[Rfam]
Shown here is a 77-nucleotide RNA from Xanthomonas oryzae, a member of the family "Xanthomonas sRNA sX9". For this family Rfam cites "Genome-wide transcriptome analysis of the plant pathogen Xanthomonas identifies sRNAs with putative virulence functions" (Schmidtke et al., Nucleic Acids Res, 2011). The base pairs follow the family's consensus structure, which was predicted with RNAalifold. The match comes from Rfam's covariance-model search (68 bits).

RNA sequence: AUGUACCACGCGGACACUGCGGUUCUGAGCGCGCCGUCCGCGCCCACCUGACCGCUGCUGGCGACGCGUUGUUCGCC
Numbered sequence: 001a002u003g004u005a006c007c008a009c010g011c012g013g014a015c016a017c018u019g020c021g022g023u024u025c026u027g028a029g030c031g032c033g034c035c036g037u038c039c040g041c042g043c044c045c046a047c048c049u050g051a052c053c054g055c056u057g058c059u060g061g062c063g064a065c066g067c068g069u070u071g072u073u074c075g076c077c
Base pairs, nucleotide, nucleotide: 002016003015004014006012020036021035022034023033025031048075050073051072052071054069